[Rfam]
RNA sequence: AGGCGGUGAAGACAAAAAUGCAAUUCCUGAGAUAAUUGUAUUUCUACAAUUUUCAUUAAUUUGAUUUGAUGACCUUCUGUGCGUGUCGUCUGAGCCUC
Numbered sequence: 001a002g003g004c005g006g007u008g009a010a011g012a013c014a015a016a017a018a019u020g021c022a023a024u025u026c027c028u029g030a031g032a033u034a035a036u037u038g039u040a041u042u043u044c045u046a047c048a049a050u051u052u053u054c055a056u057u058a059a060u061u062u063g064a065u066u067u068g069a070u071g072a073c074c075u076u077c078u079g080u081g082c083g084u085g086u087c088g089u090c091u092g093a094g095c096c097u098c
Stems, first nucleotide, its partner, number of pairs: 001097004
Shown here is a 98-nucleotide sequence from Anisodus acutangulus, a member of the family "small nucleolar RNA snoR126". On this family, see Chen and Wu, Nucleic Acids Res 2009: "Mining small RNA sequencing data: a new approach to identify small nucleolar RNAs in Arabidopsis". The base pairs follow the family's consensus structure, which was predicted with RNAalifold. It is annotated as a C/D-box small nucleolar RNA. NCBI's taxonomy places the organism under Eukaryota, Mesangiospermae, Gunneridae, asterids, Anisodus. It scores 40 bits against the family's covariance model.